[Rfam]
RNA sequence: AGCUUUUAUCAGUUAUCAGCAAUUGUCUUUCAUUAGGGGAAAGAAUGAGGAAGGUACCAAAGAGUAGAAGACUUGUAAACUUUAGAGUUUUGAGUGCUUAAACUUACUUUUUCAUUUUACUUCAUCCUCUAAGGAGUGCGGUCACUUGGCAUGACUACUUCCCUUCUUUUAAGUGAAAGAACAGUGAAUAGGCAAC
Dot-bracket structure: .(((..((.....))..)))........(((.(((((((.(((...((.(.(((..............(((.((...........)).)))(.(.(......).).)..)))).))...)))...))))))).)))........((((...((....((((.(((.....))).).))).....))..))))....